Rfam assigns this 267-nucleotide sequence from Nocardiopsis alba to the family "raiA RNA". Rfam's curators put it in the seed alignment. Taxonomically the source falls in Nocardiopsis alba (Bacteria, Actinomycetota, Streptosporangiales, Nocardiopsidaceae). The base pairs follow the family's consensus structure, which is taken from published work.

RNA sequence: CCCGUCCGGGUCCGUGGUUGCGCCGGACAUUCGAAGCCUCCGGGAACACCGGAGGACUUCGCCGGCAAGCCGAUGCCAGGCGCAGGCGAAACGGCCCACGUAAGGCGACUUUUCGUCGACCGAUCACGGUGCGCCUUAGAGGUAAGUCCUGCCCCACUGAGGGUCCCGAUGUCCCUCAUGACAGGGAGAAGAGCAGUAGUCGCGUUCAAGAGCGGCGACACUCUCAGCAGGCGGAUGUGGGGACGAAGACCAGGUCGGCCGGACGGG
Numbered sequence: 001c002c003c004g005u006c007c008g009g010g011u012c013c014g015u016g017g018u019u020g021c022g023c024c025g026g027a028c029a030u031u032c033g034a035a036g037c038c039u040c041c042g043g044g045a046a047c048a049c050c051g052g053a054g055g056a057c058u059u060c061g062c063c064g065g066c067a068a069g070c071c072g073a074u075g076c077c078a079g080g081c082g083c084a085g086g087c088g089a090a091a092c093g094g095c096c097c098a099c100g101u102a103a104g105g106c107g108a109c110u111u112u113u114c115g116u117c118g119a120c121c122g123a124u125c126a127c128g129g130u131g132c133g134c135c136u137u138a139g140a141g142g143u144a145a146g147u148c149c150u151g152c153c154c155c156a157c158u159g160a161g162g163g164u165c166c167c168g169a170u171g172u173c174c175c176u177c178a179u180g181a182c183a184g185g186g187a188g189a190a191g192a193g194c195a196g197u198a199g200u201c202g203c204g205u206u207c208a209a210g211a212g213c214g215g216c217g218a219c220a221c222u223c224u225c226a227g228c229a230g231g232c233g234g235a236u237g238u239g240g241g242g243a244c245g246a247a248g249a250c251c252a253g254g255u256c257g258g259c260c261g262g263a264c265g266g267g
Stems, first nucleotide, its partner, number of pairs: 001267009012258003015252005073238003076086001078136007095129002100124001104120001107116001127245001148231005153186003190224004199216005